[Rfam]
RNA sequence: AUGGCAUGAUGUGGACAUUGUCUCUAACUCUUUUCAUCUCAUCCAUGACUCAUAAAGAGUCUCAUCUUCUUUUGGCCUAAAAGCAGUCAUUUGAUUCCUUAAUUCU
Numbered sequence: 001a002u003g004g005c006a007u008g009a010u011g012u013g014g015a016c017a018u019u020g021u022c023u024c025u026a027a028c029u030c031u032u033u034u035c036a037u038c039u040c041a042u043c044c045a046u047g048a049c050u051c052a053u054a055a056a057g058a059g060u061c062u063c064a065u066c067u068u069c070u071u072u073u074g075g076c077c078u079a080a081a082a083g084c085a086g087u088c089a090u091u092u093g094a095u096u097c098c099u100u101a102a103u104u105c106u
Base pairs, nucleotide, nucleotide: 001106003104004103006100055072056071

A member of the RNA family "Plant small nucleolar RNA R71" from Hevea brasiliensis, 106 nucleotides long. Pairs were carried over by alignment from the consensus structure, which was predicted with PFOLD. The match comes from Rfam's covariance-model search (44 bits). Taxonomically the source falls in Hevea (Eukaryota, Tracheophyta, eudicotyledons, fabids). A reference for the family is Brown et al. (2003), "Plant snoRNAs: functional evolution and new modes of gene expression", Trends Plant Sci.